Notes:
A member of the RNA family "Bacterial RNase P class A" from Kangiella sp. HZ709, 367 nucleotides long. The organism belongs to Kangiella, within Bacteria. It is annotated as a ribozyme. The match comes from Rfam's covariance-model search (324 bits).
[Rfam]
RNA sequence: GAAGCUGGCCAGACAGUCGCUGUCCUUUUAUCUUCGGGUAAAAAGAGAGAGGAAAGUCCGGACUUCAUAGAGCAGGGUGCCAGGUAACGCCUGGGCGGCGAAAGUCGACGGCAAGUGCAGCAGAAAAUAUACCGCCGAUGGUUCACUUUAGUGUUCACAGGUAAGGUUGAAAUGGUGCGGUAAGAGCGCACCGCAUUGCUGGUAACAGUAUAUGGCGAGGUAAACCCCACCUGAAGCAAGACCAAAUAGGAUUCCGUACGGCGUGGCUCGCGUUGGAAUCGGGUAGGUUGCUGGAGCCAUUGAGUGAUCAAUGGCCUAGACGAAUGACUGUCCACGACAGAAUCCGGCUUAUCGGCCAGCUUCACUU
Numbered sequence: 001g002a003a004g005c006u007g008g009c010c011a012g013a014c015a016g017u018c019g020c021u022g023u024c025c026u027u028u029u030a031u032c033u034u035c036g037g038g039u040a041a042a043a044a045g046a047g048a049g050a051g052g053a054a055a056g057u058c059c060g061g062a063c064u065u066c067a068u069a070g071a072g073c074a075g076g077g078u079g080c081c082a083g084g085u086a087a088c089g090c091c092u093g094g095g096c097g098g099c100g101a102a103a104g105u106c107g108a109c110g111g112c113a114a115g116u117g118c119a120g121c122a123g124a125a126a127a128u129a130u131a132c133c134g135c136c137g138a139u140g141g142u143u144c145a146c147u148u149u150a151g152u153g154u155u156c157a158c159a160g161g162u163a164a165g166g167u168u169g170a171a172a173u174g175g176u177g178c179g180g181u182a183a184g185a186g187c188g189c190a191c192c193g194c195a196u197u198g199c200u201g202g203u204a205a206c207a208g209u210a211u212a213u214g215g216c217g218a219g220g221u222a223a224a225c226c227c228c229a230c231c232u233g234a235a236g237c238a239a240g241a242c243c244a245a246a247u248a249g250g251a252u253u254c255c256g257u258a259c260g261g262c263g264u265g266g267c268u269c270g271c272g273u274u275g276g277a278a279u280c281g282g283g284u285a286g287g288u289u290g291c292u293g294g295a296g297c298c299a300u301u302g303a304g305u306g307a308u309c310a311a312u313g314g315c316c317u318a319g320a321c322g323a324a325u326g327a328c329u330g331u332c333c334a335c336g337a338c339a340g341a342a343u344c345c346g347g348c349u350u351a352u353c354g355g356c357c358a359g360c361u362u363c364a365c366u367u
Stems, first nucleotide, its partner, number of pairs: 001363010011352001012332007020049002023046002026043006054350003058347005063236004070269004075232005080094005095109001096107004110227002115225002117221002132166002134162003139157003174192006193216001194214003197210005240289004250280006260274005296315008